[Rfam]
The record is a 330-nucleotide sequence from Camelus dromedarius, which matches "Nuclear RNase P" in Rfam. Taxonomically the source falls in Camelus (Eukaryota, Deuterostomia, Tetrapoda, Artiodactyla). Rfam describes the family as follows. Ribonuclease P (RNase P) is a ubiquitous endoribonuclease, found in archaea, bacteria and eukarya as well as chloroplasts and mitochondria. Its best characterised activity is the generation of mature 5'-ends of tRNAs by cleaving the 5'-leader elements of precursor-tRNAs. Cellular RNase Ps are ribonucleoproteins. By type it is a ribozyme. Gene Ontology terms of the family: ribonuclease P activity, ribonuclease P complex and tRNA processing.
RNA sequence: GGUGGAAGGAAACAUCCGUGGGGCCACGAGCUGGGUGCAUUUAGUAACUCUACCCCACGUCCCUUGUGAAAGUCUGAGACUAGGGCCAAAAGCGGCCCCAACAGGGCCCUCCCUGAGCUUAUGUAAGGUAAGUUCCCAGAGCAGGAACCUCUGGGGCUAGGGCAGAGGGGACAGGAGAUGCCGUGUACCCGCCCUUGGGGAGGGUCCUAGCAGAUGACCGCUUAACCUGUGCUUGGAACAGACUCGUGGCCUACGAAGUGAGUUCAAUGGCAGAGUUGAGGUACCCUACAUGGGGGCAUUAUAACGCAAUUCAGACUACUUUCCCCCACC
Numbered sequence: 001g002g003u004g005g006a007a008g009g010a011a012a013c014a015u016c017c018g019u020g021g022g023g024c025c026a027c028g029a030g031c032u033g034g035g036u037g038c039a040u041u042u043a044g045u046a047a048c049u050c051u052a053c054c055c056c057a058c059g060u061c062c063c064u065u066g067u068g069a070a071a072g073u074c075u076g077a078g079a080c081u082a083g084g085g086c087c088a089a090a091a092g093c094g095g096c097c098c099c100a101a102c103a104g105g106g107c108c109c110u111c112c113c114u115g116a117g118c119u120u121a122u123g124u125a126a127g128g129u130a131a132g133u134u135c136c137c138a139g140a141g142c143a144g145g146a147a148c149c150u151c152u153g154g155g156g157c158u159a160g161g162g163c164a165g166a167g168g169g170g171a172c173a174g175g176a177g178a179u180g181c182c183g184u185g186u187a188c189c190c191g192c193c194c195u196u197g198g199g200g201a202g203g204g205u206c207c208u209a210g211c212a213g214a215u216g217a218c219c220g221c222u223u224a225a226c227c228u229g230u231g232c233u234u235g236g237a238a239c240a241g242a243c244u245c246g247u248g249g250c251c252u253a254c255g256a257a258g259u260g261a262g263u264u265c266a267a268u269g270g271c272a273g274a275g276u277u278g279a280g281g282u283a284c285c286c287u288a289c290a291u292g293g294g295g296g297c298a299u300u301a302u303a304a305c306g307c308a309a310u311u312c313a314g315a316c317u318a319c320u321u322u323c324c325c326c327c328a329c330c
Stems, first nucleotide, its partner, number of pairs: 001330004008324003013275001016270002020064004033050004038044001074314005084251004094108005109127002113123001128247002131244004149231001277301003281297002